RNA sequence: GGUUCUAUGAUGAGAAACCUACGUCCUGAAGAGAGCAGAUGUCAUAAAAGUCAUUCUCAGGUUCCGGUUGCUGAGGCCC
Numbered sequence: 001g002g003u004u005c006u007a008u009g010a011u012g013a014g015a016a017a018c019c020u021a022c023g024u025c026c027u028g029a030a031g032a033g034a035g036c037a038g039a040u041g042u043c044a045u046a047a048a049a050g051u052c053a054u055u056c057u058c059a060g061g062u063u064c065c066g067g068u069u070g071c072u073g074a075g076g077c078c079c
Stems, first nucleotide, its partner, number of pairs: 001079002004076001005073001008070004
RNA: Small nucleolar RNA SNORD115